[Rfam]
RNA sequence: CCCGGGGUUUACACCCCGGGCUACGCGCUGCCGCCCCUAACGGGGCU
Numbered sequence: 001c002c003c004g005g006g007g008u009u010u011a012c013a014c015c016c017c018g019g020g021c022u023a024c025g026c027g028c029u030g031c032c033g034c035c036c037c038u039a040a041c042g043g044g045g046c047u
Stems, first nucleotide, its partner, number of pairs: 001020008033046005
Acido-Lenti-1 RNA: a 47-nucleotide RNA sequence from Planctomycetes bacterium MalM25.
The family's RNA type in Rfam is small RNA.
The family's consensus secondary structure is taken from published work.
The organism belongs to Planctomycetota, within Bacteria.